Shown here is an 84-nucleotide RNA sequence from Larimichthys crocea, a member of the family "mir-221 microRNA precursor family".
[Rfam]
RNA sequence: UAAGUUCUGGACCUGGCAUACAGUGUAGGAUUCUGUGUGUGUCAGUCUACAGCUACAUUGUCUGCUGGGUUUCAGGCCUAUACU
Dot-bracket structure: ............((((((.(((((((((....((((............))))))))))))).))))))................
The base pairs follow the family's consensus structure, which was predicted with RNAalifold.
A search with the family's covariance model found it, with a score of 72 bits.
Taxonomically the source falls in Larimichthys (Eukaryota, Deuterostomia, Percomorphaceae, Sciaenidae).